Shown here is an 86-nucleotide sequence from Solanum commersonii, a member of the family "MIR8024 microRNA precursor family".
Rfam links the family to the GO terms RISC complex and miRNA-mediated post-transcriptional gene silencing.
[Rfam]
RNA sequence: UUGGAAGAUUUGAAUACUUCAACUUGUAGGCUUAAAGAAUUUGAAGACUUCAACUUGCAAACUUGAAGAAUUUGAAGACUUCAAUU
Numbered sequence: 001u002u003g004g005a006a007g008a009u010u011u012g013a014a015u016a017c018u019u020c021a022a023c024u025u026g027u028a029g030g031c032u033u034a035a036a037g038a039a040u041u042u043g044a045a046g047a048c049u050u051c052a053a054c055u056u057g058c059a060a061a062c063u064u065g066a067a068g069a070a071u072u073u074g075a076a077g078a079c080u081u082c083a084a085u086u
Base pairs, nucleotide, nucleotide: 001084002083003082004081005080009076010075011074012073013072014071017068018067019066020065021064025059026058027057028056032053033052035050036049037048